[Rfam]
RNA sequence: GGUCAUGAGAUCCAGCGACAGCCCCGGCUUGCUGGACGGCAACCCCCUGACGCGGUGGGGUGCUCCGGGUGAGGACCAGGCGACACGAUGGCGCGGCGAGCAGUCCUGACGUCAACGCUGUGUGGCAAGCGCGGCUC
Numbered sequence: 001g002g003u004c005a006u007g008a009g010a011u012c013c014a015g016c017g018a019c020a021g022c023c024c025c026g027g028c029u030u031g032c033u034g035g036a037c038g039g040c041a042a043c044c045c046c047c048u049g050a051c052g053c054g055g056u057g058g059g060g061u062g063c064u065c066c067g068g069g070u071g072a073g074g075a076c077c078a079g080g081c082g083a084c085a086c087g088a089u090g091g092c093g094c095g096g097c098g099a100g101c102a103g104u105c106c107u108g109a110c111g112u113c114a115a116c117g118c119u120g121u122g123u124g125g126c127a128a129g130c131g132c133g134g135c136u137c
Stems, first nucleotide, its partner, number of pairs: 001077004009037001011036006020029002038064003043060003046055002080126002083123004
Dot-bracket structure: ((((....(.((((((...((......)).)))))))(((..(((((......))..))).))).........))))..((.((((.................................)))).))...........
RNA: SAM (S-adenosyl methionine) riboswitch aptamer
Organism: Nakamurella flavida